A member of the RNA family "Eukaryotic large subunit ribosomal RNA" from Babesia bovis, 498 nucleotides of a longer RNA. NCBI's taxonomy places the organism under Eukaryota, Alveolata, Apicomplexa, Aconoidasida, Babesia. Its Rfam clan is "LSU clan". Rfam's curators put it in the seed alignment. For this family Rfam cites "Crystal structure of the ribosome at 5.5 A resolution" (Yusupov et al., Science, 2001). The family has 88 seed sequences and 107,465 matches in Rfam 15.1.
[Rfam]
RNA sequence: UCCUCCGAAGUUUCCCUCAGGAUAGCUGGAAUCUCCCGGGCCUCGCCCGCCCUCAGUUUUACCAGGUAAAGCUAAUGAUUAGAGGUAUCGGGGGGCCGUGCCCCUUGACCUAUUCUCAAACUUUAAAUUGGUAAGAUCCCCGGGCGUGCUUCUCUGACGCCCCGGGCCGAAUGUCGAUUCCUAGUGGGCCAUUUUUGGUAAGCAGAACUGGCGAUGAGGGCUGCACCUAACGCCGGGUUAAGGUGCCCAAAUACCUGCUCAUCAGAUACCAUAAAAGGUGUUGGUUCAUUUAGACAGCAGGACGGUGGUCAUGGAAGUCGAAACCCGCUAAGGAGUGUGUAACAACUCACCUGCCGAAUGAACUUGCCCUGAAAAUGGAUGGCGCUCAAGCAGGUUACCGAAACCCGGCCAUGGCCCCCUGGGCCAUGUGUAGGAGGACGUGGGCUCGGCUUUGAAGCGCGGCGCGCAAGCCCGCGUGGAGCCCUGCCUAGUGCAGAU
Numbered sequence: 001u002c003c004u005c006c007g008a009a010g011u012u013u014c015c016c017u018c019a020g021g022a023u024a025g026c027u028g029g030a031a032u033c034u035c036c037c038g039g040g041c042c043u044c045g046c047c048c049g050c051c052c053u054c055a056g057u058u059u060u061a062c063c064a065g066g067u068a069a070a071g072c073u074a075a076u077g078a079u080u081a082g083a084g085g086u087a088u089c090g091g092g093g094g095g096c097c098g099u100g101c102c103c104c105u106u107g108a109c110c111u112a113u114u115c116u117c118a119a120a121c122u123u124u125a126a127a128u129u130g131g132u133a134a135g136a137u138c139c140c141c142g143g144g145c146g147u148g149c150u151u152c153u154c155u156g157a158c159g160c161c162c163c164g165g166g167c168c169g170a171a172u173g174u175c176g177a178u179u180c181c182u183a184g185u186g187g188g189c190c191a192u193u194u195u196u197g198g199u200a201a202g203c204a205g206a207a208c209u210g211g212c213g214a215u216g217a218g219g220g221c222u223g224c225a226c227c228u229a230a231c232g233c234c235g236g237g238u239u240a241a242g243g244u245g246c247c248c249a250a251a252u253a254c255c256u257g258c259u260c261a262u263c264a265g266a267u268a269c270c271a272u273a274a275a276a277g278g279u280g281u282u283g284g285u286u287c288a289u290u291u292a293g294a295c296a297g298c299a300g301g302a303c304g305g306u307g308g309u310c311a312u313g314g315a316a317g318u319c320g321a322a323a324c325c326c327g328c329u330a331a332g333g334a335g336u337g338u339g340u341a342a343c344a345a346c347u348c349a350c351c352u353g354c355c356g357a358a359u360g361a362a363c364u365u366g367c368c369c370u371g372a373a374a375a376u377g378g379a380u381g382g383c384g385c386u387c388a389a390g391c392a393g394g395u396u397a398c399c400g401a402a403a404c405c406c407g408g409c410c411a412u413g414g415c416c417c418c419c420u421g422g423g424c425c426a427u428g429u430g431u432a433g434g435a436g437g438a439c440g441u442g443g444g445c446u447c448g449g450c451u452u453u454g455a456a457g458c459g460c461g462g463c464g465c466g467c468a469a470g471c472c473c474g475c476g477u478g479g480a481g482c483c484c485u486g487c488c489u490a491g492u493g494c495a496g497a498u
Stems, first nucleotide, its partner, number of pairs: 001438006011024001013022003028181006057136008069124001070122002076118003081113001083111003088108006095101001139165002142162006188212004193207005217228003232409005238403001242399003251396001253395001256392003276370003280367002283364007297354005303327003309321002328332001333348001337346002410428008439493001441490005448483003457477002464471002